The family of this 119-nucleotide RNA sequence from Paenibacillus beijingensis is "epsC RNA". The base pairs follow the family's consensus structure, which is taken from published work. Taxonomically the source falls in Paenibacillus (Bacteria, Bacillati, Bacilli, Caryophanales). The match comes from Rfam's covariance-model search (110 bits).
[Rfam]
RNA sequence: AGGUGAUGCCUACUGUACCUUUAUCAACGUAGGCACUCGGCCACGCUGUGGGUCUUGCAUGUUGCAGACCUUAGACGUUCAUCGUCAAGGGUGUGGUGUGAGGAUGGGUUCGAUGCCCG
Numbered sequence: 001a002g003g004u005g006a007u008g009c010c011u012a013c014u015g016u017a018c019c020u021u022u023a024u025c026a027a028c029g030u031a032g033g034c035a036c037u038c039g040g041c042c043a044c045g046c047u048g049u050g051g052g053u054c055u056u057g058c059a060u061g062u063u064g065c066a067g068a069c070c071u072u073a074g075a076c077g078u079u080c081a082u083c084g085u086c087a088a089g090g091g092u093g094u095g096g097u098g099u100g101a102g103g104a105u106g107g108g109u110u111c112g113a114u115g116c117c118c119g
Base pairs, nucleotide, nucleotide: 001020002019003018004017007035008034009033010032011031012030013029036102037101038100039099040097041096042095043094044093045092046091047090050071051070052069053068054067056066057065058064074086075085076084077083105119106118107117108116109115